[Rfam]
Shown here is a 56-nucleotide sequence from Streptomyces beijiangensis, a member of the family "msiK RNA". By type it is a cis-regulatory element. NCBI's taxonomy places the organism under Bacteria, Actinomycetes, Kitasatosporales, Streptomycetaceae, Streptomyces. It scores 49 bits against the family's covariance model.

RNA sequence: ACACCACUCCCUUACUCGGAUCGUCCGGCACGUUCCUGCCGGUGAAGGAGCUACAC
Numbered sequence: 001a002c003a004c005c006a007c008u009c010c011c012u013u014a015c016u017c018g019g020a021u022c023g024u025c026c027g028g029c030a031c032g033u034u035c036c037u038g039c040c041g042g043u044g045a046a047g048g049a050g051c052u053a054c055a056c
Base pairs, nucleotide, nucleotide: 008049009048010047012045013044014043025042026041027040028039029038030037
Pairs were carried over by alignment from the consensus structure, which is taken from published work. Rfam 15.1 lists 1,374 matches to the family in 1,364 species.